[Rfam]
RNA sequence: CAAUGCAAGAAGAAGCGCCCGCUUCUCACCUGACUGACUAAUGAAGUUUGUAGGUUACUAAAAUGUUUAAGUUAUGAACAGUAUAGGUGUGGGCGCAAUAUGUGCUCACACCUUUUUUAUGCU
Numbered sequence: 001c002a003a004u005g006c007a008a009g010a011a012g013a014a015g016c017g018c019c020c021g022c023u024u025c026u027c028a029c030c031u032g033a034c035u036g037a038c039u040a041a042u043g044a045a046g047u048u049u050g051u052a053g054g055u056u057a058c059u060a061a062a063a064u065g066u067u068u069a070a071g072u073u074a075u076g077a078a079c080a081g082u083a084u085a086g087g088u089g090u091g092g093g094c095g096c097a098a099u100a101u102g103u104g105c106u107c108a109c110a111c112c113u114u115u116u117u118u119a120u121g122c123u
Stems, first nucleotide, its partner, number of pairs: 011026006028055003034050001036048003088110010
A member of the RNA family "Ribosomal protein L20 leader" from Anaerobacillus alkalidiazotrophicus, 123 nucleotides long. The literature on the family includes a 1994 paper in Prog Nucleic Acid Res Mol Biol by Zengel and Lindahl, "Diverse mechanisms for regulating ribosomal protein synthesis in Escherichia coli". A search with the family's covariance model found it, with a score of 73 bits. By type it is a cis-regulatory leader.